[Rfam]
RNA sequence: GCUCUUCCUCUCUAAUCCUUUGUCCCUGGGUGAGAGUGCUUUCUGAAUGCAAUGCACCCGGGCAAGGAUUCUGAGAGGGUGAGC
Numbered sequence: 001g002c003u004c005u006u007c008c009u010c011u012c013u014a015a016u017c018c019u020u021u022g023u024c025c026c027u028g029g030g031u032g033a034g035a036g037u038g039c040u041u042u043c044u045g046a047a048u049g050c051a052a053u054g055c056a057c058c059c060g061g062g063c064a065a066g067g068a069u070u071c072u073g074a075g076a077g078g079g080u081g082a083g084c
Stems, first nucleotide, its partner, number of pairs: 014070007025062008037051003
The family of this 84-nucleotide sequence from Homo sapiens is "mir-500 microRNA precursor family".
For this family Rfam cites "Small RNA expression and strain specificity in the rat" (Linsen et al., BMC Genomics, 2010).
Gene Ontology terms of the family: RISC complex and miRNA-mediated post-transcriptional gene silencing.
It is one of the family's seed sequences.
NCBI's taxonomy places the organism under Eukaryota, Opisthokonta, Sarcopterygii, Tetrapoda, Homo.